The record is a 93-nucleotide RNA from Dicrurus megarhynchus, which matches "Small nucleolar RNA SNORD91 family" in Rfam. Taxonomically the source falls in Dicrurus (Eukaryota, Sarcopterygii, Tetrapoda, Dicruridae). On this family, see Huttenhofer et al., EMBO J 2001: "RNomics: an experimental approach that identifies 201 candidates for novel, small, non-messenger RNAs in mouse".

RNA sequence: GCAGGAAGCCUGUGAUGUCUUAGCCGUGGUGUCUGAACCUGGCUGAAGGACUCUUGUGAAGAAUCUCUCCUAGGCUCUGAGGCUUCCAGGGCA
Numbered sequence: 001g002c003a004g005g006a007a008g009c010c011u012g013u014g015a016u017g018u019c020u021u022a023g024c025c026g027u028g029g030u031g032u033c034u035g036a037a038c039c040u041g042g043c044u045g046a047a048g049g050a051c052u053c054u055u056g057u058g059a060a061g062a063a064u065c066u067c068u069c070c071u072a073g074g075c076u077c078u079g080a081g082g083c084u085u086c087c088a089g090g091g092c093a
Base pairs, nucleotide, nucleotide: 004087005086006085007084008083009082010081